[Rfam]
RNA sequence: AGAGCACCUCAACCCAAGAGCUGCUGUUCCUUGUAACAGUGGUUUAAACAGAGGUGCCGACAGCAAGUGGAUCUCGUCACCUUUGGGGGGCUGUGGCUGUGCCCCUCAAAGUGAAUUUGGAGGUUCUACACCC
Numbered sequence: 001a002g003a004g005c006a007c008c009u010c011a012a013c014c015c016a017a018g019a020g021c022u023g024c025u026g027u028u029c030c031u032u033g034u035a036a037c038a039g040u041g042g043u044u045u046a047a048a049c050a051g052a053g054g055u056g057c058c059g060a061c062a063g064c065a066a067g068u069g070g071a072u073c074u075c076g077u078c079a080c081c082u083u084u085g086g087g088g089g090g091c092u093g094u095g096g097c098u099g100u101g102c103c104c105c106u107c108a109a110a111g112u113g114a115a116u117u118u119g120g121a122g123g124u125u126c127u128a129c130a131c132c133c
Stems, first nucleotide, its partner, number of pairs: 004057006019044010069126007081111011
Dot-bracket structure: ...((((((.........((((((((((......)))))))))).......))))))...........(((((((.....(((((((((((.........)))))))))))........))))))).......
The family of this 133-nucleotide RNA from Suricata suricatta is "Small nucleolar RNA SNORA68". Rfam's curators write: U68 is a member of the H/ACA class of small nucleolar RNAs (snoRNAs) which act as guides in the the modification of uridines to pseudouridines. It scores 141 bits against the family's covariance model. A reference for the family is Ganot et al. (1997), "The family of box ACA small nucleolar RNAs is defined by an evolutionarily conserved secondary structure and ubiquitous sequence elements essential for RNA accumulation", Genes Dev. By type it is an H/ACA-box small nucleolar RNA. Gene Ontology terms of the family: nucleolus and RNA processing. The family has 26 seed sequences and 1,079 matches in Rfam 15.1.